[Rfam]
RNA: Small nucleolar RNA SNORA53
RNA sequence: AACACGCUCCUUAGAUCCACCUCUGGAGGGCAGUCCUGUGCUGUUGUCUCUGAGUGCUGCAGCUCCAGCUUGGAAGCCCUCAACAGCUUUUUGGCUGUAUAGUUGGAGGUGUUUGAGUCAUUGGCGUGUGAGAGCAGUCUACCUGCCUCCCAGCCCCUCUGCUGCACUGGCAACCCUCAGUUCCACUGGCGGGACCCUACCGGUGCAGCUAUGCUGGGGGAUGGACAAU
Numbered sequence: 001a002a003c004a005c006g007c008u009c010c011u012u013a014g015a016u017c018c019a020c021c022u023c024u025g026g027a028g029g030g031c032a033g034u035c036c037u038g039u040g041c042u043g044u045u046g047u048c049u050c051u052g053a054g055u056g057c058u059g060c061a062g063c064u065c066c067a068g069c070u071u072g073g074a075a076g077c078c079c080u081c082a083a084c085a086g087c088u089u090u091u092u093g094g095c096u097g098u099a100u101a102g103u104u105g106g107a108g109g110u111g112u113u114u115g116a117g118u119c120a121u122u123g124g125c126g127u128g129u130g131a132g133a134g135c136a137g138u139c140u141a142c143c144u145g146c147c148u149c150c151c152a153g154c155c156c157c158u159c160u161g162c163u164g165c166a167c168u169g170g171c172a173a174c175c176c177u178c179a180g181u182u183c184c185a186c187u188g189g190c191g192g193g194a195c196c197c198u199a200c201c202g203g204u205g206c207a208g209c210u211a212u213g214c215u216g217g218g219g220g221a222u223g224g225a226c227a228a229u
Stems, first nucleotide, its partner, number of pairs: 002129007010117005018111008026081005034074003040069004048062002083098006143224003147220001150217001152215003163207008177189003